Source information
This 146-nucleotide sequence from Triticum urartu belongs to the Rfam family "Small nucleolar RNA snoR2/U65". The base pairs follow the family's consensus structure, which was predicted with WAR. NCBI's taxonomy places the organism under Eukaryota, Spermatophyta, Mesangiospermae, Triticinae, Triticum. On this family, see Shaw et al., J Cell Sci 1998: "Localization and processing from a polycistronic precursor of novel snoRNAs in maize". Rfam links the family to the GO terms RNA processing and nucleolus.
RNA sequence: GGCGUGUUGCCAUGUCUCUGGUAGCUACAGCUUUGACCAGAGAUGCUACUUUGUGCCAACAGAGAGAUCUUGGAUGUUUCACGUUUGAUAGUUACCUGUGGACGUGAUUUAGUCGGAACACAGAGCUGUUUUGUUUCAUUAAAAAA
Numbered sequence: 001g002g003c004g005u006g007u008u009g010c011c012a013u014g015u016c017u018c019u020g021g022u023a024g025c026u027a028c029a030g031c032u033u034u035g036a037c038c039a040g041a042g043a044u045g046c047u048a049c050u051u052u053g054u055g056c057c058a059a060c061a062g063a064g065a066g067a068u069c070u071u072g073g074a075u076g077u078u079u080c081a082c083g084u085u086u087g088a089u090a091g092u093u094a095c096c097u098g099u100g101g102a103c104g105u106g107a108u109u110u111a112g113u114c115g116g117a118a119c120a121c122a123g124a125g126c127u128g129u130u131u132u133g134u135u136u137c138a139u140u141a142a143a144a145a146a
Stems, first nucleotide, its partner, number of pairs: 002056005009049001013045006020038003024031002079138001081136001083134001091127001096123003100119001103116001